[Rfam]
RNA sequence: GGAUAUGAGGGUGAUCUGGCUGCGACAUCUGUCACCACCCUAUUGAUCGCCAGGAUCGAUGUGGCUGAUCUGGCUGGCUAGGAAGGUGACCUCCCUCCCUCAUUGCUCCAUAUGUGUCCCUCCCAAAACUGCCCACUUGGUCGGCCUUCCCCGAUAGAGGAGGACCGUUCUUGGGUCAAGGGUCUACUAAUUGCUGUGCUCCCCUGCUAGAACCUGCACACAAGAUCUCAAGGUCCAUUUGUAGGAGAACGUAGGGUAGCCAAACUUCCAGGACUCCAGACACAUCCUAAUGAGUCUGCAUGUGGCAGUCUGCCUUUCUUU
Numbered sequence: 001g002g003a004u005a006u007g008a009g010g011g012u013g014a015u016c017u018g019g020c021u022g023c024g025a026c027a028u029c030u031g032u033c034a035c036c037a038c039c040c041u042a043u044u045g046a047u048c049g050c051c052a053g054g055a056u057c058g059a060u061g062u063g064g065c066u067g068a069u070c071u072g073g074c075u076g077g078c079u080a081g082g083a084a085g086g087u088g089a090c091c092u093c094c095c096u097c098c099c100u101c102a103u104u105g106c107u108c109c110a111u112a113u114g115u116g117u118c119c120c121u122c123c124c125a126a127a128a129c130u131g132c133c134c135a136c137u138u139g140g141u142c143g144g145c146c147u148u149c150c151c152c153g154a155u156a157g158a159g160g161a162g163g164a165c166c167g168u169u170c171u172u173g174g175g176u177c178a179a180g181g182g183u184c185u186a187c188u189a190a191u192u193g194c195u196g197u198g199c200u201c202c203c204c205u206g207c208u209a210g211a212a213c214c215u216g217c218a219c220a221c222a223a224g225a226u227c228u229c230a231a232g233g234u235c236c237a238u239u240u241g242u243a244g245g246a247g248a249a250c251g252u253a254g255g256g257u258a259g260c261c262a263a264a265c266u267u268c269c270a271g272g273a274c275u276c277c278a279g280a281c282a283c284a285u286c287c288u289a290a291u292g293a294g295u296c297u298g299c300a301u302g303u304g305g306c307a308g309u310c311u312g313c314c315u316u317u318c319u320u321u
Stems, first nucleotide, its partner, number of pairs: 001109003005103007013094001018091002026088005032082002035077002040073003045070004049065003117163002119160004123140004141154003193265001195263001199259002202256006214247002217244001220242005289320002292316003296312001297307003
RNA: 7SK RNA